Shown here is a 92-nucleotide RNA sequence from Rhizobium sp. Root149, a member of the family "Rhizobiales sRNA Atu_Ti1". For this family Rfam cites "Deep sequencing uncovers numerous small RNAs on all four replicons of the plant pathogen Agrobacterium tumefaciens" (Wilms et al., RNA Biol, 2012).
[Rfam]
Nucleotides: 092
Stems, first nucleotide, its partner, number of pairs: 001018004023047002026044001031039001049092002052089007063082001065080001
Number, partner (000 for none) and nucleotide at each position: 001018g002017u003016c004015c005000a006000c007000u008000g009000a010000g011000c012000g013000g014000c015004g016003g017002a018001c019000c020000a021000g022000a023047g024046c025000c026044a027000u028000a029000g030000c031039c032000c033000u034000a035000u036000c037000a038000u039031g040000a041000c042000u043000a044026u045000c046024g047023u048000u049092g050091c051000c052089g053088c054087c055086g056085g057084c058083c059000g060000a061000u062000a063082u064000a065080g066000c067000g068000u069000c070000g071000c072000c073000a074000u075000g076000a077000c078000g079000a080065c081000c082063a083058g084057g085056c086055c087054g088053g089052c090000u091050g092049c